[Rfam]
RNA sequence: CACGUCAGCGCGAGUUGCUGACAUGGUAACAAAUCGCGCCAUCCAGGACGCGAUUUGCUGACACGUCAGCAACUCUCGCUGAUGUGG
Numbered sequence: 001c002a003c004g005u006c007a008g009c010g011c012g013a014g015u016u017g018c019u020g021a022c023a024u025g026g027u028a029a030c031a032a033a034u035c036g037c038g039c040c041a042u043c044c045a046g047g048a049c050g051c052g053a054u055u056u057g058c059u060g061a062c063a064c065g066u067c068a069g070c071a072a073c074u075c076u077c078g079c080u081g082a083u084g085u086g087g
Stems, first nucleotide, its partner, number of pairs: 001086010012075010024063002027060002030057009040047001

MIR7486 microRNA precursor family: an 87-nucleotide RNA sequence from Gossypium laxum. Rfam 15.1 lists 10,132 matches to the family in 36 species. The match comes from Rfam's covariance-model search (75 bits).